[Rfam]
RNA sequence: GGUCGCGUGGCCAAAUGGUACGGCGUCUGACUACGACUGAGUAUCAUCAGGAGAUCGCGGGUUCGAUCCCCGUCGUGACCU
Numbered sequence: 001g002g003u004c005g006c007g008u009g010g011c012c013a014a015a016u017g018g019u020a021c022g023g024c025g026u027c028u029g030a031c032u033a034c035g036a037c038u039g040a041g042u043a044u045c046a047u048c049a050g051g052a053g054a055u056c057g058c059g060g061g062u063u064c065g066a067u068c069c070c071c072g073u074c075g076u077g078a079c080c081u
Stems, first nucleotide, its partner, number of pairs: 001080007010024003026051005057073005
RNA: tRNA
Organism: Apiotrichum porosum